[Rfam]
RNA sequence: GGAGAGGUGGGUGAGUGGCUUAAACCAGUUCCCUGCUAAGGAACCGUACGUUAAUUCGUACCGAGGGUUCGAAUCCCUCCCUCUCCG
Numbered sequence: 001g002g003a004g005a006g007g008u009g010g011g012u013g014a015g016u017g018g019c020u021u022a023a024a025c026c027a028g029u030u031c032c033c034u035g036c037u038a039a040g041g042a043a044c045c046g047u048a049c050g051u052u053a054a055u056u057c058g059u060a061c062c063g064a065g066g067g068u069u070c071g072a073a074u075c076c077c078u079c080c081c082u083c084u085c086c087g
Stems, first nucleotide, its partner, number of pairs: 001086007010026003028044005063079005
Dot-bracket structure: (((((((..(((...........))).(((((.......)))))..................(((((.......)))))))))))).
Annotation: Rfam assigns this 87-nucleotide RNA sequence from Marinobacter sp. X15-166B to the family "tRNA". The family's RNA type in Rfam is transfer RNA.